Shown here is a 72-nucleotide sequence from Deminuibacter soli, a member of the family "Fluoride riboswitch aptamer (crcB RNA motif)".

[Rfam]
RNA sequence: GACUGAAAGGGAAAUGGUGUCUUCCCUACCCAAACCGUUCUGCACAACAGAGCUGAUGGCGCCUGCAAAACA
Numbered sequence: 001g002a003c004u005g006a007a008a009g010g011g012a013a014a015u016g017g018u019g020u021c022u023u024c025c026c027u028a029c030c031c032a033a034a035c036c037g038u039u040c041u042g043c044a045c046a047a048c049a050g051a052g053c054u055g056a057u058g059g060c061g062c063c064u065g066c067a068a069a070a071c072a
Stems, first nucleotide, its partner, number of pairs: 010025004016063006037053006

A reference for the family is Ren et al. (2012), "Fluoride ion encapsulation by Mg2+ ions and phosphates in a fluoride riboswitch", Nature.